[Rfam]
RNA: 6S-Flavo RNA
Organism: Paracellulophaga tyrosinoxydans
RNA sequence: ACUCAACGUUAAAUUGUUUGAAAAGGGUGAGUUUAAGUUGUAAAAGCAUGCCUGCUAGUACAGGAUCCUUGAGCAAUUUGUUAGCCCUAAACUUGUUUUUUUGGAGUUU
Numbered sequence: 001a002c003u004c005a006a007c008g009u010u011a012a013a014u015u016g017u018u019u020g021a022a023a024a025g026g027g028u029g030a031g032u033u034u035a036a037g038u039u040g041u042a043a044a045a046g047c048a049u050g051c052c053u054g055c056u057a058g059u060a061c062a063g064g065a066u067c068c069u070u071g072a073g074c075a076a077u078u079u080g081u082u083a084g085c086c087c088u089a090a091a092c093u094u095g096u097u098u099u100u101u102u103g104g105a106g107u108u109u
Stems, first nucleotide, its partner, number of pairs: 024088005035079005044070003051064004